[Rfam]
RNA sequence: CAGUUAAAGCGUUCGUAGUCGGAGCGGAAAGAAUGGCGUGACAGACAGCUGCUCAAAGGGUGGUGUGCGCCGUGAUCCCGCGGAAUGAGGAGAGUUUUGGGACCAGGCUAUUAAACGGCAAGCGGUGAAAUGUGGUGACCCGUUUAGGAGCAACAGAGGCGAAAGCGCUGGUCAGGGGCUAUUCCGAUGAUAAAGGACGUAGGCUAGAGGAUCGAAGACGAUUAGAGACCGUUGUAGUUCUAGCAGUAAACGAUGCCGAUGUUGUGGUGCAGAGUGCAACGCAAGAGAGAAAUCUAGUAGGGCCCUGGGGAGAGUACGCGCGCAAGCGAGAAAUUUAAAGGAAAU
Numbered sequence: 001c002a003g004u005u006a007a008a009g010c011g012u013u014c015g016u017a018g019u020c021g022g023a024g025c026g027g028a029a030a031g032a033a034u035g036g037c038g039u040g041a042c043a044g045a046c047a048g049c050u051g052c053u054c055a056a057a058g059g060g061u062g063g064u065g066u067g068c069g070c071c072g073u074g075a076u077c078c079c080g081c082g083g084a085a086u087g088a089g090g091a092g093a094g095u096u097u098u099g100g101g102a103c104c105a106g107g108c109u110a111u112u113a114a115a116c117g118g119c120a121a122g123c124g125g126u127g128a129a130a131u132g133u134g135g136u137g138a139c140c141c142g143u144u145u146a147g148g149a150g151c152a153a154c155a156g157a158g159g160c161g162a163a164a165g166c167g168c169u170g171g172u173c174a175g176g177g178g179c180u181a182u183u184c185c186g187a188u189g190a191u192a193a194a195g196g197a198c199g200u201a202g203g204c205u206a207g208a209g210g211a212u213c214g215a216a217g218a219c220g221a222u223u224a225g226a227g228a229c230c231g232u233u234g235u236a237g238u239u240c241u242a243g244c245a246g247u248a249a250a251c252g253a254u255g256c257c258g259a260u261g262u263u264g265u266g267g268u269g270c271a272g273a274g275u276g277c278a279a280c281g282c283a284a285g286a287g288a289g290a291a292a293u294c295u296a297g298u299a300g301g302g303c304c305c306u307g308g309g310g311a312g313a314g315u316a317c318g319c320g321c322g323c324a325a326g327c328g329a330g331a332a333a334u335u336u337a338a339a340g341g342a343a344a345u
Base pairs, nucleotide, nucleotide: 001307002306003305011198012197013196014195018191019190020189089185090184091183093180094179095178096177097176101173102172103171104170105169106168107151108150111147112146113145114144115143116142117141118140122133123132124131159166160165203244204243205242206241207240208239213237217233218232219231220230255303256302257301259298260297262284263283264282265281266280268278269277270276271275287294288293309336310335311334319328320327321326
Dot-bracket structure: (((.......((((...(((....................................................................(((.(((((...((((((((..((((((((...(((......)))......))))))))..)).......((....)).))))))..)))))..)))...)))...))))....((((((....(...((((.........))))...).))))))..........(((.((.(((((.((((...)))).)))))..((....))..))..))).))).(((.......(((....))).....))).........